[Rfam]
RNA sequence: UAAUUGAAGAGUUUGAUCAUGGCUCAGAUUGAACGCUGGCGGCAGGCCUAACACAUGCAAGUCGAGCGGUAACAUUUCUAGCUUGCUAGAAGAUGACGAGCGGCGGACGGGUGAGUAAUGCUUGGGAAUAUGCCUUAGGGUGGGGGACAACAGUUGGAAACGACUGCUAAUACCGCAUAACGUCUACGGACCAAAGGGGGCUUCGGCUCUCGCCCUUAGAUUAGCCCAAGUGGGAUUAGCUAGUUGGUGAGGUAAUGGCUCACCAAGGCGACGAUCCCUAGCUGGUUUGAGAGGAUGAUCAGCCACACUGGAACUGAGACACGGUCCAGACUCCUACGGGAGGCAGCAGUGGGGAAUAUUGCACAAUGGGCGCAAGCCUGAUGCAGCCAUGCCGCGUGUGUGAAGAAGGCCUUAGGGUUGUAAAGCACUUUCAGUAAGGAGGAAAGGUUAGUAGUUAAUACCUGCUAGCUGUGACGUUACUUACAGAAGAAGCACCGGCUAACUCCGUGCCAGCAGCCGCGGUAAUACGGAGGGUGCGAGCGUUAAUCGGAAUUACUG
Numbered sequence: 001u002a003a004u005u006g007a008a009g010a011g012u013u014u015g016a017u018c019a020u021g022g023c024u025c026a027g028a029u030u031g032a033a034c035g036c037u038g039g040c041g042g043c044a045g046g047c048c049u050a051a052c053a054c055a056u057g058c059a060a061g062u063c064g065a066g067c068g069g070u071a072a073c074a075u076u077u078c079u080a081g082c083u084u085g086c087u088a089g090a091a092g093a094u095g096a097c098g099a100g101c102g103g104c105g106g107a108c109g110g111g112u113g114a115g116u117a118a119u120g121c122u123u124g125g126g127a128a129u130a131u132g133c134c135u136u137a138g139g140g141u142g143g144g145g146g147a148c149a150a151c152a153g154u155u156g157g158a159a160a161c162g163a164c165u166g167c168u169a170a171u172a173c174c175g176c177a178u179a180a181c182g183u184c185u186a187c188g189g190a191c192c193a194a195a196g197g198g199g200g201c202u203u204c205g206g207c208u209c210u211c212g213c214c215c216u217u218a219g220a221u222u223a224g225c226c227c228a229a230g231u232g233g234g235a236u237u238a239g240c241u242a243g244u245u246g247g248u249g250a251g252g253u254a255a256u257g258g259c260u261c262a263c264c265a266a267g268g269c270g271a272c273g274a275u276c277c278c279u280a281g282c283u284g285g286u287u288u289g290a291g292a293g294g295a296u297g298a299u300c301a302g303c304c305a306c307a308c309u310g311g312a313a314c315u316g317a318g319a320c321a322c323g324g325u326c327c328a329g330a331c332u333c334c335u336a337c338g339g340g341a342g343g344c345a346g347c348a349g350u351g352g353g354g355a356a357u358a359u360u361g362c363a364c365a366a367u368g369g370g371c372g373c374a375a376g377c378c379u380g381a382u383g384c385a386g387c388c389a390u391g392c393c394g395c396g397u398g399u400g401u402g403a404a405g406a407a408g409g410c411c412u413u414a415g416g417g418u419u420g421u422a423a424a425g426c427a428c429u430u431u432c433a434g435u436a437a438g439g440a441g442g443a444a445a446g447g448u449u450a451g452u453a454g455u456u457a458a459u460a461c462c463u464g465c466u467a468g469c470u471g472u473g474a475c476g477u478u479a480c481u482u483a484c485a486g487a488a489g490a491a492g493c494a495c496c497g498g499c500u501a502a503c504u505c506c507g508u509g510c511c512a513g514c515a516g517c518c519g520c521g522g523u524a525a526u527a528c529g530g531a532g533g534g535u536g537c538g539a540g541c542g543u544u545a546a547u548c549g550g551a552a553u554u555a556c557u558g
Stems, first nucleotide, its partner, number of pairs: 009025005027548004032544006039395006045388002047353001052351003056348003061104003066101002069097002075092007111306003120231007129223002134219002137216004142176001144174002151166006182191003196211006232278003239269003244266008281303004285296004308329005331342004359385001361384003367380005398428004408419004432489001434484005442475001447469007492537005503532005513520002
Rfam assigns this 558-nucleotide part of an RNA from Pseudoalteromonas phenolica to the family "Bacterial small subunit ribosomal RNA". Its family is annotated with structural constituent of ribosome and ribosome in the Gene Ontology.